[Rfam]
RNA sequence: AAUAUCCUUCGGGGCAGGGUGAAAUUCCCAACCGGCGGUGAUGAGGGUGACCUCUUAGUCCGUGACCCGGGCUCAGGAAUGAGAACGGUGGAUUUGGUGCAAUUCCAAAGCCGACAGUAUAGUCUGGAUGGGAGAAGGAUGCG
Number, nucleotide and partner (000 for none) at each position: 001a000002a000003u141004a140005u139006c138007c137008u136009u135010c134011g000012g000013g000014g000015c000016a000017g029018g028019g027020u000021g000022a000023a000024a000025u000026u000027c019028c018029c017030a000031a123032c122033c113034g112035g063036c062037g061038g060039u000040g000041a000042u000043g000044a000045g000046g000047g000048u000049g000050a000051c000052c000053u000054c000055u000056u000057a000058g111059u110060c038061c037062g036063u035064g000065a000066c000067c088068c087069g000070g000071g000072c000073u000074c000075a000076g000077g000078a000079a000080u000081g000082a000083g000084a000085a000086c000087g068088g067089u000090g000091g000092a000093u109094u108095u107096g106097g105098u000099g000100c000101a000102a000103u000104u000105c097106c096107a095108a094109a093110g059111c058112c034113g033114a000115c126116a125117g124118u000119a000120u000121a000122g032123u031124c117125u116126g115127g000128a000129u000130g000131g000132g000133a000134g010135a009136a008137g007138g006139a005140u004141g003142c000143g000

The family of this 143-nucleotide RNA sequence from Cytobacillus kochii is "FMN riboswitch aptamer (RFN element)".